[Rfam]
RNA sequence: GCAAUGGCCGACUAGGGUUCCGGCCCGUUCACCGCGACGGGUGUCUGGUCCGAGAGUUGGCGACCUCGACAGGGGUUACACGGCGGGACAAAAGCCCGGGAGAA
Numbered sequence: 001g002c003a004a005u006g007g008c009c010g011a012c013u014a015g016g017g018u019u020c021c022g023g024c025c026c027g028u029u030c031a032c033c034g035c036g037a038c039g040g041g042u043g044u045c046u047g048g049u050c051c052g053a054g055a056g057u058u059g060g061c062g063a064c065c066u067c068g069a070c071a072g073g074g075g076u077u078a079c080a081c082g083g084c085g086g087g088a089c090a091a092a093a094g095c096c097c098g099g100g101a102g103a104a
Base pairs, nucleotide, nucleotide: 007061008060009059010058011057012056015051016050020048021047022045023042024041025040026039027038028037062077063076064075065074066073067072079099081102085097086096087095
Annotation:
Shown here is a 104-nucleotide RNA, a member of the family "Guanidine-I riboswitch aptamer". From the family's description: This family represents a conserved RNA structure found upstream of the ykkC and yxkD genes in Bacillus subtilis and related genes in other bacteria. The function of this family is unclear although it has been suggested that it may function to switch on efflux pumps and detoxification systems in response to harmful environmental molecules. The match comes from Rfam's covariance-model search (89 bits). The base pairs follow the family's consensus structure.